Source information:
This 121-nucleotide RNA sequence from Pediococcus argentinicus belongs to the Rfam family "FMN riboswitch aptamer (RFN element)". The match comes from Rfam's covariance-model search (100 bits).
RNA sequence: UCAUCUUCAAGGGGCAGGGUGUAAUUCCCGACCGGUGGUAUAGUCCAUGACCCGUCUACGGACGGCUGACUCGGUGUAAUUCCGAGACCGAUAGUUAAAGUCUAGAUGAAAUAGAAGAAUG
Numbered sequence: 001u002c003a004u005c006u007u008c009a010a011g012g013g014g015c016a017g018g019g020u021g022u023a024a025u026u027c028c029c030g031a032c033c034g035g036u037g038g039u040a041u042a043g044u045c046c047a048u049g050a051c052c053c054g055u056c057u058a059c060g061g062a063c064g065g066c067u068g069a070c071u072c073g074g075u076g077u078a079a080u081u082c083c084g085a086g087a088c089c090g091a092u093a094g095u096u097a098a099a100g101u102c103u104a105g106a107u108g109a110a111a112u113a114g115a116a117g118a119a120u121g
Base pairs, nucleotide, nucleotide: 004118005117006116007115008114010112017029018028019027031101032100033090034089035048036047037046038045043088044087052065053064070086071085072084073083074082092104093103094102